Description:
The family of this 323-nucleotide sequence from Propionispora sp. 2/2-37 is "Bacterial RNase P class B". Clan: RNaseP clan.

[Rfam]
RNA sequence: GUAUACGAGGGAACGCUGUACAUUGUGCAGAGGAAAGUCCGGACAGGCACGGGCUGCGAUGCCCGUAGUGAUUGCGCGUGACCUAAGAAGUCACGGAAGGAAGCUCAUUCCUUACGGCGGCAAAACCGACUCUGUCUGAGUUGGCGGUAGCCUGAAAGUGCCACAGAAACGAAACGUUCCGGCGACGGAACGAUGCAAGGGUAAACCCCGCAAGCCUGAAACUCAAAUUACGGUAGAGGAACCCUAGGAAGGGAAUAAAACCAGAUUAGGGCGCAUGAAACUGCGAGAUAAAUGUUUCCUAAAACAGAAUCCGGCUUACGGUA
Numbered sequence: 001g002u003a004u005a006c007g008a009g010g011g012a013a014c015g016c017u018g019u020a021c022a023u024u025g026u027g028c029a030g031a032g033g034a035a036a037g038u039c040c041g042g043a044c045a046g047g048c049a050c051g052g053g054c055u056g057c058g059a060u061g062c063c064c065g066u067a068g069u070g071a072u073u074g075c076g077c078g079u080g081a082c083c084u085a086a087g088a089a090g091u092c093a094c095g096g097a098a099g100g101a102a103g104c105u106c107a108u109u110c111c112u113u114a115c116g117g118c119g120g121c122a123a124a125a126c127c128g129a130c131u132c133u134g135u136c137u138g139a140g141u142u143g144g145c146g147g148u149a150g151c152c153u154g155a156a157a158g159u160g161c162c163a164c165a166g167a168a169a170c171g172a173a174a175c176g177u178u179c180c181g182g183c184g185a186c187g188g189a190a191c192g193a194u195g196c197a198a199g200g201g202u203a204a205a206c207c208c209c210g211c212a213a214g215c216c217u218g219a220a221a222c223u224c225a226a227a228u229u230a231c232g233g234u235a236g237a238g239g240a241a242c243c244c245u246a247g248g249a250a251g252g253g254a255a256u257a258a259a260a261c262c263a264g265a266u267u268a269g270g271g272c273g274c275a276u277g278a279a280a281c282u283g284c285g286a287g288a289u290a291a292a293u294g295u296u297u298c299c300u301a302a303a304a305c306a307g308a309a310u311c312c313g314g315c316u317u318a319c320g321g322u323a
Base pairs, nucleotide, nucleotide: 004323005322006321007319008300009299010298011297012296013295014294016030017029018028019027020026021025035317036316037315039314040313041312042311043310044218045217046216047215048214049066050065051064052063053062054061072213073212074211075210076209077095078094079093080092081091082090096115097113098112099111100110101109102108116208117207119152120151121150127143128142129141130140158206159205160202161201162200175192176191177190178189179188180187181186222238223237224236242271243270244269245268246267247266272285273284274283275282
The organism belongs to Propionispora, within Bacteria.